[Rfam]
The family of this 252-nucleotide RNA from Candidatus Vecturithrix granuli is "Group I catalytic intron".
Gene Ontology term of the family: Group I intron splicing.
RNA sequence: GGGUGGCUGUGAAAAUCGCAGCUUCGACGGGAAACCGUCGUUGAAACAUCGAGUGAAUUCAGGGAAGCCUACGUCCGGGUACGGAUAGGGUAAUCCUGAGCCAAGCCUGCUGAACAGGUUUCGCAUGAGUAGGCAGGAAGGUGCAGAGACUAGGAAUAAGGACGCCUGACCAAUAAAUUCCACAAGCGCUCGACGCCCUAACGAGUCAGGUCGAGGGUGAUGAGAUAGUCCAGGCCUAUGAGAAAUCAUGGG
Numbered sequence: 001g002g003g004u005g006g007c008u009g010u011g012a013a014a015a016u017c018g019c020a021g022c023u024u025c026g027a028c029g030g031g032a033a034a035c036c037g038u039c040g041u042u043g044a045a046a047c048a049u050c051g052a053g054u055g056a057a058u059u060c061a062g063g064g065a066a067g068c069c070u071a072c073g074u075c076c077g078g079g080u081a082c083g084g085a086u087a088g089g090g091u092a093a094u095c096c097u098g099a100g101c102c103a104a105g106c107c108u109g110c111u112g113a114a115c116a117g118g119u120u121u122c123g124c125a126u127g128a129g130u131a132g133g134c135a136g137g138a139a140g141g142u143g144c145a146g147a148g149a150c151u152a153g154g155a156a157u158a159a160g161g162a163c164g165c166c167u168g169a170c171c172a173a174u175a176a177a178u179u180c181c182a183c184a185a186g187c188g189c190u191c192g193a194c195g196c197c198c199u200a201a202c203g204a205g206u207c208a209g210g211u212c213g214a215g216g217g218u219g220a221u222g223a224g225a226u227a228g229u230c231c232a233g234g235c236c237u238a239u240g241a242g243a244a245a246u247c248a249u250g251g252g
Stems, first nucleotide, its partner, number of pairs: 003025001005023005028037003049193004054188002059099006068090003100142002106136001113130001117126001146231001148230005196217004237250005
About the family: Group I catalytic introns are large self-splicing ribozymes. They catalyse their own excision from mRNA, tRNA and rRNA precursors in a wide range of organisms. The core secondary structure consists of 9 paired regions (P1-P9). These fold to essentially two domains - the P4-P6 domain (formed from the stacking of P5, P4, P6 and P6a helices) and the P3-P9 domain (formed from the P8, P3, P7 and P9 helices). The secondary structure mark-up for this family represents only this conserved core. Group I catalytic introns often have long ORFs inserted in loop regions. The window size for this search is chosen to minimise search time and catch the small examples. A larger window size will find more matches. A search with the family's covariance model found it, with a score of 80 bits.